This 188-nucleotide sequence from Nannospalax galili belongs to the Rfam family "Small Cajal body specific RNA 16". Rfam links the family to the GO terms nucleolus and RNA processing. A reference for the family is Darzacq et al. (2002), "Cajal body-specific small nuclear RNAs: a novel class of 2'-O-methylation and pseudouridylation guide RNAs", EMBO J. The family's consensus secondary structure was predicted with RNAfold. The source organism's lineage runs through Eukaryota, Gnathostomata, Sarcopterygii, Amniota and Nannospalax.
RNA sequence: ACGGUCUGGGGAAAGGCUCCUGUGUGGUUGGACCUGCCUGAGGUGGGUUCAGCCUUGUACCAGACAGCCCGACCUUGACCCAGAGUAAAUGCCCGGGAGGAGAAGCCUCCCUGGGUUUAGAAUUUGCAGUAACAGGUGUGAGCAUUCUAGCAGCAGUUUGAUGAUCAUGUAUGAUACUGCAAACAGGA
Numbered sequence: 001a002c003g004g005u006c007u008g009g010g011g012a013a014a015g016g017c018u019c020c021u022g023u024g025u026g027g028u029u030g031g032a033c034c035u036g037c038c039u040g041a042g043g044u045g046g047g048u049u050c051a052g053c054c055u056u057g058u059a060c061c062a063g064a065c066a067g068c069c070c071g072a073c074c075u076u077g078a079c080c081c082a083g084a085g086u087a088a089a090u091g092c093c094c095g096g097g098a099g100g101a102g103a104a105g106c107c108u109c110c111c112u113g114g115g116u117u118u119a120g121a122a123u124u125u126g127c128a129g130u131a132a133c134a135g136g137u138g139u140g141a142g143c144a145u146u147c148u149a150g151c152a153g154c155a156g157u158u159u160g161a162u163g164a165u166c167a168u169g170u171a172u173g174a175u176a177c178u179g180c181a182a183a184c185a186g187g188a
Base pairs, nucleotide, nucleotide: 003080004079005078006077008075009074010073015069016068017067018066020063021062022061024060025059026054027053028052029051030050032048033047034046092115093114094113095111096110097109098108099107123183124182125181126180127179128178129177130176131175133173134172139167140166141165143163144162145161146160149158150157151156